[Rfam]
Rfam assigns this 105-nucleotide sequence from Leptothoe spongobia to the family "Glutamine riboswitch aptamer (glnA leader)". Gene Ontology term of the family: glutamine binding. For this family Rfam cites "Bacterial aptamers that selectively bind glutamine" (Ames and Breaker, RNA Biol, 2011). The organism belongs to Leptothoe spongobia, within Bacteria. The match comes from Rfam's covariance-model search (46 bits).
RNA sequence: AACGUUCAUUCCUAUUCGGAUUGAUUGCAUCUACCCAUUGCCUUCAGUCUAGGUAGGAACGGAAGUAGGAAAGAUAGUUAACCUAUCGGACCGAAGGAACGCGCC
Numbered sequence: 001a002a003c004g005u006u007c008a009u010u011c012c013u014a015u016u017c018g019g020a021u022u023g024a025u026u027g028c029a030u031c032u033a034c035c036c037a038u039u040g041c042c043u044u045c046a047g048u049c050u051a052g053g054u055a056g057g058a059a060c061g062g063a064a065g066u067a068g069g070a071a072a073g074a075u076a077g078u079u080a081a082c083c084u085a086u087c088g089g090a091c092c093g094a095a096g097g098a099a100c101g102c103g104c105c
Stems, first nucleotide, its partner, number of pairs: 003101005009059008062102001068092002